The record is a 196-nucleotide RNA sequence from Knoellia koreensis, which matches "Actinobacteria sRNA Ms_IGR-5" in Rfam.
RNA sequence: ACACGGAAAGGAGGUGGUCCAGGAAGUGAUUUCCCAUAGGACGCGUGAGGUGGCUGCGCGCUAGCGCUGACCUCGACUGCUUCGAGGGCGCAACGCGCAAUCCCAGCAGUACCACCGCAGCCCGCGGGCCGCGCAGGUCGUCCCCUGCGCAUCGCCACCGCUCGAUUCGGAUGGCAAGGCCCGCGGGCUGUUCCGU
Numbered sequence: 001a002c003a004c005g006g007a008a009a010g011g012a013g014g015u016g017g018u019c020c021a022g023g024a025a026g027u028g029a030u031u032u033c034c035c036a037u038a039g040g041a042c043g044c045g046u047g048a049g050g051u052g053g054c055u056g057c058g059c060g061c062u063a064g065c066g067c068u069g070a071c072c073u074c075g076a077c078u079g080c081u082u083c084g085a086g087g088g089c090g091c092a093a094c095g096c097g098c099a100a101u102c103c104c105a106g107c108a109g110u111a112c113c114a115c116c117g118c119a120g121c122c123c124g125c126g127g128g129c130c131g132c133g134c135a136g137g138u139c140g141u142c143c144c145c146u147g148c149g150c151a152u153c154g155c156c157a158c159c160g161c162u163c164g165a166u167u168c169g170g171a172u173g174g175c176a177a178g179g180c181c182c183g184c185g186g187g188c189u190g191u192u193c194c195g196u
Stems, first nucleotide, its partner, number of pairs: 014057005059097003062093001064091002069089001071087002074084003118190013132149006
Pairs were carried over by alignment from the consensus structure. Lineage of the source: Bacteria > Bacillati > Micrococcales > Intrasporangiaceae > Knoellia.